[Rfam]
RNA sequence: GGCUUGUUUUAAGUUGCCUGCGAUCUCUUAAUGACUCAGGCAGCUAAAGCAAGUCUG
Dot-bracket structure: ((((((((((.(((((((((.(............).)))))))))))))))))))..